[Rfam]
Nucleotides: 142
Stems, first nucleotide, its partner, number of pairs: 001069002004066001005063004013057003019051003023045006082136004096130001098128001103125002107121002111118001
Number, partner (000 for none) and nucleotide at each position: 001069c002068c003000c004066c005063c006062c007061u008060g009000g010000c011000a012000a013057u014056g015055g016000g017000c018000a019051a020050a021049g022000a023045g024044g025043c026042a027041c028040c029000u030000u031000g032000u033000u034000g035000u036000u037000a038000a039000u040028g041027g042026u043025g044024u045023u046000g047000u048000u049021c050020u051019u052000c053000c054000a055015u056014c057013a058000g059000u060008c061007a062006g063005g064000u065000a066004g067000a068002g069001g070000g071000u072000g073000c074000a075000g076000u077000c078000c079000u080000a081000u082136g083135u084134u085133c086000a087000u088000c089000c090000u091000a092000g093000a094000u095000u096130g097000a098128u099000g100000c101000c102000u103125g104124g105000c106000u107121u108120g109000g110000c111118g112000g113000c114000c115000a116000a117000a118111c119000c120108u121107g122000u123000c124104u125103u126000c127000u128098g129000c130096c131000u132000a133085g134084g135083a136082c137000u138000c139000a140000u141000u142000a